[Rfam]
RNA sequence: AGAAUUUCGUCGGCGCCUACCUCCUCCCAGGUUCCGAUGAAUACGGUCAGGCUUCACCUCCUCCCGAUCGCUGACCGAUCAAAACGACACCCGCCGGACCUCCUCCCCCGGCGGGUGUUGUUG
Numbered sequence: 001a002g003a004a005u006u007u008c009g010u011c012g013g014c015g016c017c018u019a020c021c022u023c024c025u026c027c028c029a030g031g032u033u034c035c036g037a038u039g040a041a042u043a044c045g046g047u048c049a050g051g052c053u054u055c056a057c058c059u060c061c062u063c064c065c066g067a068u069c070g071c072u073g074a075c076c077g078a079u080c081a082a083a084a085c086g087a088c089a090c091c092c093g094c095c096g097g098a099c100c101u102c103c104u105c106c107c108c109c110g111g112c113g114g115g116u117g118u119u120g121u122u123g
Base pairs, nucleotide, nucleotide: 007040008039009038011036012035013034015032016031017030045076046075047074048073049072050071051069053067087118088117089116090115091114092113093112094111095110096109097108
RNA: Alphaproteobacterial ar14
Organism: Mesorhizobium zhangyense